The family of this 174-nucleotide RNA from Shewanella pealeana is "Lysine riboswitch aptamer". The match comes from Rfam's covariance-model search (125 bits).
[Rfam]
RNA sequence: CCUUUGAGUAGAGGCGCGCUGCCUAAAAGUAUCCAGAUAGAGGGUGACACCUAAGACAUCUGGGGAAAGGAGUCAGCGCCGAAGUUAUUGUUGCGUCAUCAACAAUCGCUGGGUCUGCAUUUAACAGAUGCAGGACUGCCAUAGUUAUGUUGUCUAUGGAGCGCUACCUAAAGG
Numbered sequence: 001c002c003u004u005u006g007a008g009u010a011g012a013g014g015c016g017c018g019c020u021g022c023c024u025a026a027a028a029g030u031a032u033c034c035a036g037a038u039a040g041a042g043g044g045u046g047a048c049a050c051c052u053a054a055g056a057c058a059u060c061u062g063g064g065g066a067a068a069g070g071a072g073u074c075a076g077c078g079c080c081g082a083a084g085u086u087a088u089u090g091u092u093g094c095g096u097c098a099u100c101a102a103c104a105a106u107c108g109c110u111g112g113g114u115c116u117g118c119a120u121u122u123a124a125c126a127g128a129u130g131c132a133g134g135a136c137u138g139c140c141a142u143a144g145u146u147a148u149g150u151u152g153u154c155u156a157u158g159g160a161g162c163g164c165u166a167c168c169u170a171a172a173g174g
Base pairs, nucleotide, nucleotide: 006169008167009166010165011164016079017078018077019076020075021074023072024071032064033063034062035061036060037059038058083110084109085108087106088105089104090103091102092101093100111137112136114134115133116132117131118130119129120128121127139159140158141157142156143155144154